[Rfam]
RNA sequence: GAUCGCUGCCCUCCUUGGGCGUUUCCUCCCUAGACUUGAGCCCGCUUCGUUCGUCACUGUCCGAAGCGGGCUUCUUUCAUCAAGGG
Numbered sequence: 001g002a003u004c005g006c007u008g009c010c011c012u013c014c015u016u017g018g019g020c021g022u023u024u025c026c027u028c029c030c031u032a033g034a035c036u037u038g039a040g041c042c043c044g045c046u047u048c049g050u051u052c053g054u055c056a057c058u059g060u061c062c063g064a065a066g067c068g069g070g071c072u073u074c075u076u077u078c079a080u081c082a083a084g085g086g
Stems, first nucleotide, its partner, number of pairs: 008020004040071009
Makes More Granules Regulator RNA (mmgR): an 86-nucleotide sequence from Tardiphaga sp. vice352. Rfam describes the family as follows. SuhB later renamed mmgR (makes more granules regulator) was a putative non-coding RNA found multiple times in the Agrobacterium tumefaciens genome and related alpha-proteobacteria. Other non-coding RNAs uncovered in the same analysis include: speF, ybhL, metA, and serC.Several studies inSinorhizobium meliloti showed that suhB element is indeed a non-coding RNA:firstly it was detected on Northern blot and called Sm8RNA, secondly in an RNAseq study referred to as SmelC689.The mutant phenotype's (strain lacking the small RNA) cytoplasm contains higher content of polyhydroxybutyrate (PBH)storage granules than wild type strain. The sRNA is required to limit the PBH intracellular accumulation when the nitrogen-fixing Sinorhizobium meliloti is under condition of surplus carbon in relation to nitrogen. It has been renamed to mmgR. Further study confirmed that mmgR fine-tunes the regulation of PBH storage.Northern blot confirmed the expression of the sRNA in other rhizobia species. MmgR homologues were found in most alpha-proteobacteria. Its family is annotated with DNA-templated transcription, termination, response to nitrogen compound and protein binding in the Gene Ontology. The literature on the family includes a 2005 paper in Genome Biol by Corbino et al., "Evidence for a second class of S-adenosylmethionine riboswitches and other regulatory RNA motifs in alpha-proteobacteria".